[Rfam]
RNA sequence: GUACCACGUGUAGGAUUGCGAAAAUGUACAGGUUGGCAUUAAUUGAAUAAUUUGUCACCCGGGCCUUUCCGACUAUCCUUCCAUGGUUU
Numbered sequence: 001g002u003a004c005c006a007c008g009u010g011u012a013g014g015a016u017u018g019c020g021a022a023a024a025u026g027u028a029c030a031g032g033u034u035g036g037c038a039u040u041a042a043u044u045g046a047a048u049a050a051u052u053u054g055u056c057a058c059c060c061g062g063g064c065c066u067u068u069c070c071g072a073c074u075a076u077c078c079u080u081c082c083a084u085g086g087u088u089u
Stems, first nucleotide, its partner, number of pairs: 003087004012079005018073001019071002022068003026064002029061001031059003035056004
Shown here is an 89-nucleotide RNA from Rhipicephalus microplus, a member of the family "mir-5316 microRNA precursor family". Lineage of the source: Eukaryota > Ecdysozoa > Arachnida > Ixodidae > Boophilus.